[Rfam]
RNA sequence: CUGGCCCCUAGAGGCAUUGAAGGUGUGGCUGCUGUGUCACCCGCGCGGCAGUAGGUGGCAGAGAGGUUAUGUCUGUGCUCAGUGUUCUGACCUAUAAGUGUCUGAAUGAUUAGUAGCUUAAUAUU
Numbered sequence: 001c002u003g004g005c006c007c008c009u010a011g012a013g014g015c016a017u018u019g020a021a022g023g024u025g026u027g028g029c030u031g032c033u034g035u036g037u038c039a040c041c042c043g044c045g046c047g048g049c050a051g052u053a054g055g056u057g058g059c060a061g062a063g064a065g066g067u068u069a070u071g072u073c074u075g076u077g078c079u080c081a082g083u084g085u086u087c088u089g090a091c092c093u094a095u096a097a098g099u100g101u102c103u104g105a106a107u108g109a110u111u112a113g114u115a116g117c118u119u120a121a122u123a124u125u
Stems, first nucleotide, its partner, number of pairs: 002061001004059003007055004013049001015047001019046001025040005064119007076108002079105004083100004
A member of the RNA family "Small nucleolar RNA SNORA17" from Mus musculus, 125 nucleotides long. Clan: SNORA17 clan. The match comes from Rfam's covariance-model search (81 bits). Rfam describes the family as follows. snoRNA ACA 17 belongs to the H/ACA family of snoRNAs and is predicted to guide pseudouridylation of the 28S rRNA at positions U4659 and U4598. NCBI's taxonomy places the organism under Eukaryota, Deuterostomia, Euteleostomi, Rodentia, Mus. For this family Rfam cites "Mapping to nucleotide resolution of pseudouridine residues in large subunit ribosomal RNAs from representative eukaryotes, prokaryotes, archaebacteria, mitochondria and chloroplasts" (Ofengand and Bakin, J Mol Biol, 1997).